[Rfam]
RNA sequence: GUACGUGGCGGUAAUGCCGUUGCGUCACCAUUCUCCUCUUGUCGUUAUUGCUCCGGGGCUCAAAGCCCCGGUUUUUUUGC
Numbered sequence: 001g002u003a004c005g006u007g008g009c010g011g012u013a014a015u016g017c018c019g020u021u022g023c024g025u026c027a028c029c030a031u032u033c034u035c036c037u038c039u040u041g042u043c044g045u046u047a048u049u050g051c052u053c054c055g056g057g058g059c060u061c062a063a064a065g066c067c068c069c070g071g072u073u074u075u076u077u078u079g080c
Stems, first nucleotide, its partner, number of pairs: 001028002003025005009019004053071007
This 80-nucleotide RNA belongs to the Rfam family "Burkholderia sRNA 16 (Bc_KC_sr1)". A reference for the family is Sass et al. (2017), "Identification of small RNAs abundant in Burkholderia cenocepacia biofilms reveal putative regulators with a potential role in carbon and iron metabolism", Sci Rep. Pairs were carried over by alignment from the consensus structure, which was predicted with RNAfold. By type it is a small RNA. From the family's description: Identified by RNA-seq, RACE and Northern blot. Strongly expressed in biofilm.